[Rfam]
RNA: c-di-GMP-II-GAG riboswitch aptamer
RNA sequence: UGCGCCACGGGGAGCGAUGACGCGCGGCCCAGAUCCGAGUCGCCGGGGCCGCGCCGAGCGACUGGCGAGACCGACCCGCGGGUGA
Numbered sequence: 001u002g003c004g005c006c007a008c009g010g011g012g013a014g015c016g017a018u019g020a021c022g023c024g025c026g027g028c029c030c031a032g033a034u035c036c037g038a039g040u041c042g043c044c045g046g047g048g049c050c051g052c053g054c055c056g057a058g059c060g061a062c063u064g065g066c067g068a069g070a071c072c073g074a075c076c077c078g079c080g081g082g083u084g085a
Base pairs, nucleotide, nucleotide: 001085005081006080008078009077010076011075014059015058022054023053024052025051026050027049028048029047039071040068041067042066043065044064
Dot-bracket structure: (...((.((((..((......((((((((.........[[[[[[..))))))))...))....]]]]]..]...)))).))...)